[Rfam]
RNA sequence: AUUGGCAAAUGAUGAUUAGUAUCUUAUACUACACACAGAUGAAUCAGUGUUGACAACUAAUCUCUCUUUUAUUAUCUGAUGCCAUA
Numbered sequence: 001a002u003u004g005g006c007a008a009a010u011g012a013u014g015a016u017u018a019g020u021a022u023c024u025u026a027u028a029c030u031a032c033a034c035a036c037a038g039a040u041g042a043a044u045c046a047g048u049g050u051u052g053a054c055a056a057c058u059a060a061u062c063u064c065u066c067u068u069u070u071a072u073u074a075u076c077u078g079a080u081g082c083c084a085u086a
Stems, first nucleotide, its partner, number of pairs: 003084005

Record summary
Rfam assigns this 86-nucleotide RNA sequence from Arabis alpina to the family "Small nucleolar RNA R16". The family's RNA type in Rfam is C/D-box small nucleolar RNA. The literature on the family includes a 2002 paper in Mol Cell Biol by Galardi et al., "Purified box C/D snoRNPs are able to reproduce site-specific 2'-O-methylation of target RNA in vitro". Rfam links the family to the GO terms RNA processing and nucleolus. The base pairs follow the family's consensus structure, which was predicted with PFOLD.